[Rfam]
RNA sequence: GCAGUAUCUCGUUUGGCGAGGCUCCUAUACAAACACAGGUUACUGAUCUGACGACAUCGAGAGAUGCCCAAGGUUAAGACAGGCUUUAUCGGAUUAAGGUUCAGCCCAAGGUAACUUCUGAUGAAUACAUCAGAUACGUUGUAUAGUGCUAAAACCUGGACGCGGAGAUAGGCU
Dot-bracket structure: ....(((((((([.((...(((..((((((((......(((((.(((((.....((((....))))....)))))......((((..(((......])))..))))....))))).(((((........)))))....)))))))).)))....))...))...))))))....

This 174-nucleotide RNA sequence from Serratia proteamaculans belongs to the Rfam family "M-box riboswitch aptamer (ykoK leader)". Rfam's curators put it in the seed alignment. From the family's description: M-box riboswitch, also know as ykoK leader is described as a metaloregulatory RNA that sense divalent metals and function as a genetic control element of genes related to divalent metal transport in bacteria. A reference for the family is Ramesh et al. (2011), "Insights into metalloregulation by M-box riboswitch RNAs via structural analysis of manganese-bound complexes", J Mol Biol.